[Rfam]
RNA sequence: GCAGAUACCUCGGGGGGCCAGCAAUGGCUGAGAUGCGCAAGCGGACCCGUUGAACCUGAACCGGUUAAGACCGGCGGAGGGAAGGUAUGGCAAUCGCGC
Numbered sequence: 001g002c003a004g005a006u007a008c009c010u011c012g013g014g015g016g017g018c019c020a021g022c023a024a025u026g027g028c029u030g031a032g033a034u035g036c037g038c039a040a041g042c043g044g045a046c047c048c049g050u051u052g053a054a055c056c057u058g059a060a061c062c063g064g065u066u067a068a069g070a071c072c073g074g075c076g077g078a079g080g081g082a083a084g085g086u087a088u089g090g091c092a093a094u095c096g097c098g099c
Base pairs, nucleotide, nucleotide: 006087007086008085009084010083011049012048013047014046017028018027019026020025035042036041055080056079057078061074062073063072064071

The record is a 99-nucleotide RNA sequence from Loktanella sp. S4079, which matches "TPP riboswitch aptamer (THI element)" in Rfam.
Taxonomically the source falls in Loktanella (Bacteria, Pseudomonadati, Alphaproteobacteria, Rhodobacterales).
Gene Ontology term of the family: thiamine pyrophosphate binding.
The base pairs follow the family's consensus structure, which is taken from published work.